[Rfam]
RNA sequence: GCAUGGCUGAAUACUGUGUUCUUUAGUCCCUAAUUUACACAGCCAGACACCAUGCAAUAGUAAAGGCUUCCUUUAAGAUGGUCGAUGUGCUAUAUUUUAUGGUAUAUCAUUAUGAAAAGUGAGUUUAAGU
Numbered sequence: 001g002c003a004u005g006g007c008u009g010a011a012u013a014c015u016g017u018g019u020u021c022u023u024u025a026g027u028c029c030c031u032a033a034u035u036u037a038c039a040c041a042g043c044c045a046g047a048c049a050c051c052a053u054g055c056a057a058u059a060g061u062a063a064a065g066g067c068u069u070c071c072u073u074u075a076a077g078a079u080g081g082u083c084g085a086u087g088u089g090c091u092a093u094a095u096u097u098u099a100u101g102g103u104a105u106a107u108c109a110u111u112a113u114g115a116a117a118a119g120u121g122a123g124u125u126u127a128a129g130u
Stems, first nucleotide, its partner, number of pairs: 001055006014042006068123003071119004077113001084108009
Dot-bracket structure: ((((((.......((((((.................)))))).......))))))............(((((((..(......(((((((((.......)))))))))....)..)))).))).......
Rfam assigns this 130-nucleotide RNA sequence from Rattus norvegicus to the family "Small nucleolar RNA SNORA15". The organism belongs to Rattus, within Eukaryota. A reference for the family is Huttenhofer et al. (2001), "RNomics: an experimental approach that identifies 201 candidates for novel, small, non-messenger RNAs in mouse", EMBO J. The family's consensus secondary structure was predicted with RNAfold. Rfam links the family to the GO terms nucleolus and RNA processing. By type it is an H/ACA-box small nucleolar RNA. From the family's description: ACA15 is a member of the H/ACA class of snoRNA that guide the sites of modification of uridines to pseudouridines.